[Rfam]
RNA sequence: UUUCACUAGUAUUCACUGUUUGGCCUUGGUGUAGCUCAACAAUUAAGGCACGCGGUGAAUGCCAGGGGGA
Numbered sequence: 001u002u003u004c005a006c007u008a009g010u011a012u013u014c015a016c017u018g019u020u021u022g023g024c025c026u027u028g029g030u031g032u033a034g035c036u037c038a039a040c041a042a043u044u045a046a047g048g049c050a051c052g053c054g055g056u057g058a059a060u061g062c063c064a065g066g067g068g069g070a
Stems, first nucleotide, its partner, number of pairs: 003068002006065001009062008018053002024048007

Description: Shown here is a 70-nucleotide sequence from Owenia fusiformis, a member of the family "mir-124 microRNA precursor family". A search with the family's covariance model found it, with a score of 50 bits.